[Rfam]
RNA sequence: AGCCGCACUUGUUCGAUUGGGAAACUCAUCAGUUUAUUUUAAUUCCGAGACAUAGCUCUUGUCGCCAAUGGCGGGCCGCGCCCUUCGGGGUAUGCUUAGCACGGCGGAUUACAAAGGUGGCAAAGCACUCAAAUCCUGUCAUACGGAGUUUGUUCACAUCUACAGUGCGGCUUUUUCA
Numbered sequence: 001a002g003c004c005g006c007a008c009u010u011g012u013u014c015g016a017u018u019g020g021g022a023a024a025c026u027c028a029u030c031a032g033u034u035u036a037u038u039u040u041a042a043u044u045c046c047g048a049g050a051c052a053u054a055g056c057u058c059u060u061g062u063c064g065c066c067a068a069u070g071g072c073g074g075g076c077c078g079c080g081c082c083c084u085u086c087g088g089g090g091u092a093u094g095c096u097u098a099g100c101a102c103g104g105c106g107g108a109u110u111a112c113a114a115a116g117g118u119g120g121c122a123a124a125g126c127a128c129u130c131a132a133a134u135c136c137u138g139u140c141a142u143a144c145g146g147a148g149u150u151u152g153u154u155c156a157c158a159u160c161u162a163c164a165g166u167g168c169g170g171c172u173u174u175u176u177c178a
Stems, first nucleotide, its partner, number of pairs: 055126003059123008069113002076107004081090003093101003